[Rfam]
RNA sequence: GCUGGGCGUCGUGGCGGGCGCCUGUAAGCCAGCUCCUAGGCAGCAGUGCAGUUGGAUCGGUUGAGUUGGGGGCUCACUUCCAGUGGUCUCUCUGCGUCGACGUUCGGUCCAGUCCAAGCGGUGUGUCGCUAGGGGGGUCUCUUGGAGGAGAGACAUUCCCGGGUGCACGAUGAGAGACGCAACGGCUCAGGCCCGAAAGGGAGCAGGCAAAAGUCUCCGCACAUCGACAGUGGACGGACAGCCGGACAGAGUAGAGGGCCAUUGGAAGCCUCGGCAAUACACUGAGACUCCUGUACAC
Dot-bracket structure: ((((((((((......)))))))....(((........)))))).((((((..(..(((((...(((((((.....(((((((((((((.(((((.(....(((((((((.(((((.(((((((((((((.((((((((((((....))))))).))))).))))((...)).(((((......(((....(((....)))....)))....))))).)))))))).)..)))))))...))))))).).))))))))))))))))))))))))).....)))))..)..))))))..

Shown here is a 298-nucleotide RNA from Acrobeloides nanus, a member of the family "Metazoan signal recognition particle RNA". Rfam classes the family as a non-coding RNA gene. NCBI's taxonomy places the organism under Eukaryota, Metazoa, Protostomia, Chromadorea, Acrobeloides. Rfam describes the family as follows. The signal recognition particle (SRP) is a universally conserved ribonucleoprotein. It is involved in the co-translational targeting of proteins to membranes. The family's consensus secondary structure is taken from published work.